[Rfam]
RNA sequence: UGUCUCCUCCAACUCUCCUUGAAUUGGAUUUACCCGCCACCGAAAGGUCGGCGGGUUUUUUUU
Numbered sequence: 001u002g003u004c005u006c007c008u009c010c011a012a013c014u015c016u017c018c019u020u021g022a023a024u025u026g027g028a029u030u031u032a033c034c035c036g037c038c039a040c041c042g043a044a045a046g047g048u049c050g051g052c053g054g055g056u057u058u059u060u061u062u063u
Stems, first nucleotide, its partner, number of pairs: 008028005014022002032056007